The family of this 173-nucleotide RNA sequence from Nakamurella alba is "c-di-AMP riboswitch aptamer (ydaO/yuaA leader)". Gene Ontology terms of the family: regulation of gene expression and cyclic-di-AMP binding. Taxonomically the source falls in Nakamurella (Bacteria, Bacillati, Nakamurellales, Nakamurellaceae). About the family: This family represents a conserved RNA structure found upstream of the ydaO and yuaA genes in Bacillus subtilis and related genes in other bacteria. Pairs were carried over by alignment from the consensus structure.
[Rfam]
RNA sequence: CCGCCAUGAUCACCUGGUCGGUGGGGUCGAGCCGGGGAACCAGGUACGUGGGGUGAAUCCCCGCCACCGUCCGUCGUGCCGCUUCGUGCGGCGCUGUCCGGCCGGCGCGGGGGUAGGGCAACUUCCGGCCCGAAUCCGUCAGCUCACCCGGUAGGCGGCGCAUCAGGGAAGAA
Numbered sequence: 001c002c003g004c005c006a007u008g009a010u011c012a013c014c015u016g017g018u019c020g021g022u023g024g025g026g027u028c029g030a031g032c033c034g035g036g037g038a039a040c041c042a043g044g045u046a047c048g049u050g051g052g053g054u055g056a057a058u059c060c061c062c063g064c065c066a067c068c069g070u071c072c073g074u075c076g077u078g079c080c081g082c083u084u085c086g087u088g089c090g091g092c093g094c095u096g097u098c099c100g101g102c103c104g105g106c107g108c109g110g111g112g113g114u115a116g117g118g119c120a121a122c123u124u125c126c127g128g129c130c131c132g133a134a135u136c137c138g139u140c141a142g143c144u145c146a147c148c149c150g151g152u153a154g155g156c157g158g159c160g161c162a163u164c165a166g167g168g169a170a171g172a173a
Base pairs, nucleotide, nucleotide: 002157003156004155005154010030011029031152032151033150034149035148036147041050042049051137052136053135059113060112061111062110116131117130118129119128